[Rfam]
Nucleotides: 157
Base pairs, nucleotide, nucleotide: 012144013143014142019034020033021032022031023030037139038138039137040136041135046081047080082125083124084123090099091098102119103118104117105116
Number, partner (000 for none) and nucleotide at each position: 001000c002000u003000a004000a005000a006000u007000a008000a009000a010000c011000u012144g013143c014142c015000g016000a017000a018000u019034c020033c021032u022031g023030c024000c025000a026000c027000a028000a029000g030023g031022c032021a033020g034019g035000u036000a037139c038138g039137g040136g041135g042000g043000a044000a045000c046081u047080g048000u049000g050000c051000g052000a053000a054000a055000g056000a057000c058000u059000g060000u061000c062000g063000c064000g065000a066000c067000a068000g069000u070000c071000u072000a073000u074000u075000u076000u077000g078000c079000u080047u081046g082125g083124g084123g085000u086000g087000a088000a089000g090099g091098c092000g093000g094000a095000c096000a097000a098091g099090c100000c101000c102119g103118g104117g105116u106000a107000a108000a109000u110000c111000c112000u113000c114000u115000u116105a117104u118103c119102c120000g121000a122000a123084c124083c125082c126000g127000a128000c129000a130000a131000c132000u133000a134000a135041c136040c137039u138038c139037g140000g141000a142014g143013g144012c145000u146000u147000u148000g149000g150000g151000a152000g153000g154000a155000a156000u157000g

This 157-nucleotide RNA from Paenalicyclobacillus ferrooxydans belongs to the Rfam family "c-di-AMP riboswitch aptamer (ydaO/yuaA leader)". From the family's description: This family represents a conserved RNA structure found upstream of the ydaO and yuaA genes in Bacillus subtilis and related genes in other bacteria. Its family is annotated with cyclic-di-AMP binding and regulation of gene expression in the Gene Ontology. A search with the family's covariance model found it, with a score of 71 bits. The organism belongs to Paenalicyclobacillus, within Bacteria.